[Rfam]
RNA sequence: UGGGCGGUAUCGGAAGAACUGCACCUAUGGCUUUUCGGGUUUCAAUGAAAAAUAGUUCUGCCUAGAUCCGUAACUGGACCGGGACAGAGGG
Numbered sequence: 001u002g003g004g005c006g007g008u009a010u011c012g013g014a015a016g017a018a019c020u021g022c023a024c025c026u027a028u029g030g031c032u033u034u035u036c037g038g039g040u041u042u043c044a045a046u047g048a049a050a051a052a053u054a055g056u057u058c059u060g061c062c063u064a065g066a067u068c069c070g071u072a073a074c075u076g077g078a079c080c081g082g083g084a085c086a087g088a089g090g091g
Stems, first nucleotide, its partner, number of pairs: 002025002004022005010017002058087003061083003065079001067078003
This 91-nucleotide RNA from Mesobacillus campisalis belongs to the Rfam family "pan motif". The family's consensus secondary structure is taken from published work. A search with the family's covariance model found it, with a score of 62 bits.